This 208-nucleotide sequence from Salisediminibacterium selenitireducens belongs to the Rfam family "HNH endonuclease-associated RNA and ORF (HEARO) RNA". It is one of the family's seed sequences. A reference for the family is Weinberg et al. (2009), "Exceptional structured noncoding RNAs revealed by bacterial metagenome analysis", Nature.

[Rfam]
RNA sequence: GUCAACAACCCAACGACUAAAGUCGUGGGCUUGUAAAAGCCCCUGUUGACUAGCCUAAGUCUUUCGAGGACUACGUUGGAUCGGUCAAGACACCUUACGGUGCGGAUUCUAGCUGUAAGCCCUGUCGCUUGUGAUUAAAAGUCCGAACGGGUUGUGGGCGGUGUUGCAAGCGUAAAAGCCUUUCCAACAUUGGCGAAGAAUACCUGAC
Number, nucleotide and partner (000 for none) at each position: 001g050002u049003c048004a047005a046006c045007a044008a000009c000010c029011c028012a000013a026014c025015g000016a023017c022018u000019a000020a000021a000022g017023u016024c000025g014026u013027g000028g011029g010030c039031u038032u037033g000034u000035a000036a000037a032038a031039g030040c000041c000042c000043c000044u007045g006046u005047u004048g003049a002050c001051u000052a000053g194054c193055c192056u000057a190058a072059g071060u070061c069062u068063u000064u000065c000066g000067a000068g062069g061070a060071c059072u058073a000074c000075g188076u187077u186078g185079g184080a183081u000082c000083g180084g179085u178086c000087a000088a000089g000090a125091c124092a000093c000094c119095u118096u117097a116098c115099g114100g113101u112102g204103c000104g203105g000106a201107u200108u199109c198110u197111a000112g101113c100114u099115g098116u097117a096118a095119g094120c000121c000122c000123u000124g091125u090126c000127g171128c170129u169130u168131g167132u166133g165134a164135u163136u000137a000138a000139a162140a000141g159142u158143c157144c156145g000146a153147a000148c000149g000150g000151g000152u000153u146154g000155u000156g144157g143158g142159c141160g000161g000162u139163g135164u134165u133166g132167c131168a130169a129170g128171c127172g000173u000174a000175a000176a000177a000178g085179c084180c083181u000182u000183u080184c079185c078186a077187a076188c075189a000190u057191u000192g055193g054194c053195g000196a000197a110198g109199a108200a107201u106202a000203c104204c102205u000206g000207a000208c000